[Rfam]
RNA: mir-9/mir-79 microRNA precursor family
Organism: Petromyzon marinus
RNA sequence: UAGGUGGUAUCUUUGGUUAUCUAGCUGUAUGAGUGUGUCUGGCCGUCAUAAAGCUAGAUAACCGAAAGUACCAACGA
Numbered sequence: 001u002a003g004g005u006g007g008u009a010u011c012u013u014u015g016g017u018u019a020u021c022u023a024g025c026u027g028u029a030u031g032a033g034u035g036u037g038u039c040u041g042g043c044c045g046u047c048a049u050a051a052a053g054c055u056a057g058a059u060a061a062c063c064g065a066a067a068g069u070a071c072c073a074a075c076g077a
Stems, first nucleotide, its partner, number of pairs: 001077001003075001005073001007071004012066015028050005